[Rfam]
RNA: Metazoan signal recognition particle RNA
Organism: Nothophytophthora sp. Chile5
RNA sequence: ACCGGGUUGAGUGGCGUCAACUUGUAACGGAAAGCUUCUGUCUGGGCAGUGAGGUGUGAGGGUUGUGGUAUGCGGUGUGGUGGCACUAUUCACAGGAUGUGGAUGGCGCGUCCAUCUCAAACCAGGAGUAGACAUUGGGGCGUUGGCGGAAGUCAGCGCACCGAGGUCACUAAGGAAGGGUGAACCGCCCCAGGCUGGAUAACAGAGCAGGGAAAAGCCCUCGCUCUUGGUAGUGGGAGGAUCUCGUGUCAGAAUCCUGAUGUGCCGCCGCUCAGCUACAAACCACACUUCGA
Numbered sequence: 001a002c003c004g005g006g007u008u009g010a011g012u013g014g015c016g017u018c019a020a021c022u023u024g025u026a027a028c029g030g031a032a033a034g035c036u037u038c039u040g041u042c043u044g045g046g047c048a049g050u051g052a053g054g055u056g057u058g059a060g061g062g063u064u065g066u067g068g069u070a071u072g073c074g075g076u077g078u079g080g081u082g083g084c085a086c087u088a089u090u091c092a093c094a095g096g097a098u099g100u101g102g103a104u105g106g107c108g109c110g111u112c113c114a115u116c117u118c119a120a121a122c123c124a125g126g127a128g129u130a131g132a133c134a135u136u137g138g139g140g141c142g143u144u145g146g147c148g149g150a151a152g153u154c155a156g157c158g159c160a161c162c163g164a165g166g167u168c169a170c171u172a173a174g175g176a177a178g179g180g181u182g183a184a185c186c187g188c189c190c191c192a193g194g195c196u197g198g199a200u201a202a203c204a205g206a207g208c209a210g211g212g213a214a215a216a217g218c219c220c221u222c223g224c225u226c227u228u229g230g231u232a233g234u235g236g237g238a239g240g241a242u243c244u245c246g247u248g249u250c251a252g253a254a255u256c257c258u259g260a261u262g263u264g265c266c267g268c269c270g271c272u273c274a275g276c277u278a279c280a281a282a283c284c285a286c287a288c289u290u291c292g293a
Base pairs, nucleotide, nucleotide: 002046003045004023005022006021007020008019009018010017028044029043030042051291052290053289054288055287056286057285058284063281064280065279066278067277068276069275070272074271078270079269080268081267082266083265084264085263089262094258095257096256097255098254100252104251105250106249107248108247109246110245112240113239115238116237117236118235119234121231122230123229124228125227126226127225128224129223131168132167133166135164136163137162138161140159141158142157143156144155145154146153147152170174177221178220179219180218181217188212189211190210195205196204197203